[Rfam]
RNA sequence: GGGUCAAAGAUGAGAACUCAUAUUGUCUCGAAGAGAGAUGAUGACCUAAAAUAGGAUUACACUAAGACCC
Numbered sequence: 001g002g003g004u005c006a007a008a009g010a011u012g013a014g015a016a017c018u019c020a021u022a023u024u025g026u027c028u029c030g031a032a033g034a035g036a037g038a039u040g041a042u043g044a045c046c047u048a049a050a051a052u053a054g055g056a057u058u059a060c061a062c063u064a065a066g067a068c069c070c
Base pairs, nucleotide, nucleotide: 001070002069003068004067006063009060

Small nucleolar RNA SNORD115: a 70-nucleotide RNA sequence from Callorhinus ursinus. The family has 32 seed sequences and 3,387 matches in Rfam 15.1. Rfam classes the family as a C/D-box small nucleolar RNA. Its family is annotated with nucleolus and RNA processing in the Gene Ontology. The literature on the family includes a 2000 paper in Proc Natl Acad Sci U S A by Cavaille et al., "Identification of brain-specific and imprinted small nucleolar RNA genes exhibiting an unusual genomic organization". A search with the family's covariance model found it, with a score of 62 bits.